[Rfam]
The family of this 36-nucleotide sequence from Chryseobacterium sp. Leaf404 is "DUF805b RNA".
RNA sequence: AUAGGGGAAGCCGAAAACCUAUAUCCAGAGUAGGCA
Numbered sequence: 001a002u003a004g005g006g007g008a009a010g011c012c013g014a015a016a017a018c019c020u021a022u023a024u025c026c027a028g029a030g031u032a033g034g035c036a
Base pairs, nucleotide, nucleotide: 002021003020004019005018010035011034012033